[Rfam]
MIR1435 microRNA precursor family: a 203-nucleotide RNA sequence from Triticum urartu. Its family is annotated with miRNA-mediated post-transcriptional gene silencing and RISC complex in the Gene Ontology.

RNA sequence: UAGGUUUCUCUAAGUCAAACUUCCUCAAGUUUGACCAAGUUUAUAGGAAAAAUUAUUGAUAUCCACAAAAUCAAAUAUAUAUAGUAUGAAGUUAUAUUUAUGAUUAAUUAAUUGAAACUAAUUUGGCAUUGUGGGUGUUGGUAUAUUUUUCUGUAGACUUGGUCAAACAUAAAGAAGUUUGACUUAUAAACCUAGAAAUUCAA
Numbered sequence: 001u002a003g004g005u006u007u008c009u010c011u012a013a014g015u016c017a018a019a020c021u022u023c024c025u026c027a028a029g030u031u032u033g034a035c036c037a038a039g040u041u042u043a044u045a046g047g048a049a050a051a052a053u054u055a056u057u058g059a060u061a062u063c064c065a066c067a068a069a070a071u072c073a074a075a076u077a078u079a080u081a082u083a084g085u086a087u088g089a090a091g092u093u094a095u096a097u098u099u100a101u102g103a104u105u106a107a108u109u110a111a112u113u114g115a116a117a118c119u120a121a122u123u124u125g126g127c128a129u130u131g132u133g134g135g136u137g138u139u140g141g142u143a144u145a146u147u148u149u150u151c152u153g154u155a156g157a158c159u160u161g162g163u164c165a166a167a168c169a170u171a172a173a174g175a176a177g178u179u180u181g182a183c184u185u186a187u188a189a190a191c192c193u194a195g196a197a198a199u200u201c202a203a
Stems, first nucleotide, its partner, number of pairs: 005198005011186013025172001030167005044153008054143003058139010071126006
The family has 3 seed sequences and 1,765 matches in Rfam 15.1. The match comes from Rfam's covariance-model search (95 bits).